The family of this 72-nucleotide sequence is "DUF3800-X RNA". The sequence is in the family's curated seed alignment.
RNA sequence: UAGCGAGUAAAGCCUAUCCGAAACAAUGAUGCCUGCAUUAGUGGGUUAGGAGGAUUAGGAUAGGGGUCGCUU
Number, nucleotide and partner (000 for none) at each position: 001u000002a071003g070004c069005g068006a067007g000008u000009a000010a000011a000012g000013c064014c063015u062016a061017u060018c059019c058020g000021a000022a000023a000024c000025a000026a000027u000028g000029a000030u000031g000032c045033c044034u043035g042036c041037a000038u000039u000040a000041g036042u035043g034044g033045g032046u000047u000048a000049g000050g000051a000052g000053g000054a000055u000056u000057a000058g019059g018060a017061u016062a015063g014064g013065g000066g000067u006068c005069g004070c003071u002072u000